[Rfam]
Shown here is a 126-nucleotide RNA from Enterococcus hirae, a member of the family "Ribosomal protein L10 leader". The base pairs follow the family's consensus structure, which was predicted with CMfinder. The family's RNA type in Rfam is cis-regulatory leader.
RNA sequence: GUUAAUAAUUAACUUGUACCGAAGACAGUAGGUGGCGUAGCCUUAAUUUCCUACCGAGGACGUUUAUUGAAUACUUUCAAUAGUCCCUCUAUGUCUACGGUGGCAUAGAGUUUUUUUAUUGUGAAU
Number, nucleotide and partner (000 for none) at each position: 001g000002u000003u000004a000005a000006u000007a000008a000009u000010u000011a000012a000013c000014u000015u000016g000017u000018a000019c000020c000021g000022a000023a000024g000025a000026c000027a000028g054029u053030a052031g051032g050033u000034g042035g041036c040037g000038u000039a000040g036041c035042c034043u000044u000045a000046a000047u000048u000049u000050c032051c031052u030053a029054c028055c000056g000057a000058g000059g000060a000061c000062g000063u000064u000065u000066a000067u000068u000069g000070a000071a000072u000073a000074c000075u000076u000077u000078c000079a000080a000081u000082a000083g000084u000085c000086c000087c110088u109089c108090u107091a106092u105093g104094u103095c102096u000097a000098c000099g000100g000101u000102g095103g094104c093105a092106u091107a090108g089109a088110g087111u000112u000113u000114u000115u000116u000117u000118a000119u000120u000121g000122u000123g000124a000125a000126u000